[Rfam]
RNA sequence: AAUCAUACAGAAGGAGCUCUCUCGUCAGUGUCAGUGGGCUUUCAGAUUGCGCUCUGCUAUGGCAACUUUUUGGUGGAGUCGUGUUUACGAAGGUAUUGGAUCAUUUAUGGAAUCGUCAGCUCACGAAACAGUCUUCACCUUUGCAAUGGCCGUUGUUGCAGGAGGAUACUUGCGGUUGGUGUUGGAAGCAUCAUCGGGACCCAUCUCGAGUUGGAGUCAAAGUUUCGUACUUGUCUGGUGUUGUGAAAGAACCUUCUGUCAAGUUCAAUUUCGCGACUCUGGCCGCACUGUUGAGGCUGGGUUGCAUUGUUGGAUCUAGGACAGGCCUUGUUGGGUAGGGUAGUCCUGGCUGUUCUCUCGCCUGAAAAUGGUGUGGAGGACAGCCCCCCGCGGUGAGG
Numbered sequence: 001a002a003u004c005a006u007a008c009a010g011a012a013g014g015a016g017c018u019c020u021c022u023c024g025u026c027a028g029u030g031u032c033a034g035u036g037g038g039c040u041u042u043c044a045g046a047u048u049g050c051g052c053u054c055u056g057c058u059a060u061g062g063c064a065a066c067u068u069u070u071u072g073g074u075g076g077a078g079u080c081g082u083g084u085u086u087a088c089g090a091a092g093g094u095a096u097u098g099g100a101u102c103a104u105u106u107a108u109g110g111a112a113u114c115g116u117c118a119g120c121u122c123a124c125g126a127a128a129c130a131g132u133c134u135u136c137a138c139c140u141u142u143g144c145a146a147u148g149g150c151c152g153u154u155g156u157u158g159c160a161g162g163a164g165g166a167u168a169c170u171u172g173c174g175g176u177u178g179g180u181g182u183u184g185g186a187a188g189c190a191u192c193a194u195c196g197g198g199a200c201c202c203a204u205c206u207c208g209a210g211u212u213g214g215a216g217u218c219a220a221a222g223u224u225u226c227g228u229a230c231u232u233g234u235c236u237g238g239u240g241u242u243g244u245g246a247a248a249g250a251a252c253c254u255u256c257u258g259u260c261a262a263g264u265u266c267a268a269u270u271u272c273g274c275g276a277c278u279c280u281g282g283c284c285g286c287a288c289u290g291u292u293g294a295g296g297c298u299g300g301g302u303u304g305c306a307u308u309g310u311u312g313g314a315u316c317u318a319g320g321a322c323a324g325g326c327c328u329u330g331u332u333g334g335g336u337a338g339g340g341u342a343g344u345c346c347u348g349g350c351u352g353u354u355c356u357c358u359c360g361c362c363u364g365a366a367a368a369u370g371g372u373g374u375g376g377a378g379g380a381c382a383g384c385c386c387c388c389c390g391c392g393g394u395g396a397g398g
Base pairs, nucleotide, nucleotide: 198218199217200216201214202213203212220232221231222230223229
RNA: Ascomycota telomerase RNA, nucleotides 1119 to 1516
Organism: Fusarium phyllophilum